The record is a 68-nucleotide RNA from Nocardia macrotermitis, which matches "ASdes TB sRNA" in Rfam. The literature on the family includes a 2009 paper in Mol Microbiol by Arnvig and Young, "Identification of small RNAs in Mycobacterium tuberculosis". Lineage of the source: Bacteria > Actinomycetes > Mycobacteriales > Nocardiaceae > Nocardia.

RNA sequence: AGCGCAACGGGAUCCACCGCGCGGGUGACCACCAGAUAGUCCCGGAUCACGAUGCCGUGCCGGUUCUC
Numbered sequence: 001a002g003c004g005c006a007a008c009g010g011g012a013u014c015c016a017c018c019g020c021g022c023g024g025g026u027g028a029c030c031a032c033c034a035g036a037u038a039g040u041c042c043c044g045g046a047u048c049a050c051g052a053u054g055c056c057g058u059g060c061c062g063g064u065u066c067u068c
Stems, first nucleotide, its partner, number of pairs: 005062001008059002011030001013028001015027004035056001037054002040052002044048001